[Rfam]
RNA sequence: GGUAUUGUUUGCCCCACUGAUAAGCCCCGGAACCUUAUUUUGGUGUCAAACAAACA
Dot-bracket structure: .....((((((.......((((((.........)))))).......))))))....
Numbered sequence: 001g002g003u004a005u006u007g008u009u010u011g012c013c014c015c016a017c018u019g020a021u022a023a024g025c026c027c028c029g030g031a032a033c034c035u036u037a038u039u040u041u042g043g044u045g046u047c048a049a050a051c052a053a054a055c056a
Stems, first nucleotide, its partner, number of pairs: 006052006019039006